[Rfam]
RNA sequence: GUGCCAUGAUGUCAAUUGUCAACACAUCAUUCUGAAGAAGGAUUCUGUGGAGCCCUUCUGGGACUGAGCACC
Number, nucleotide and partner (000 for none) at each position: 001g071002u070003g069004c068005c000006a000007u000008g000009a000010u000011g000012u000013c000014a000015a000016u000017u000018g000019u000020c000021a000022a000023c000024a000025c000026a000027u000028c000029a000030u000031u000032c000033u000034g000035a000036a000037g000038a000039a000040g000041g000042a000043u000044u000045c000046u000047g000048u000049g000050g000051a000052g000053c000054c000055c000056u000057u000058c000059u000060g000061g000062g000063a000064c000065u000066g000067a000068g004069c003070a002071c001072c000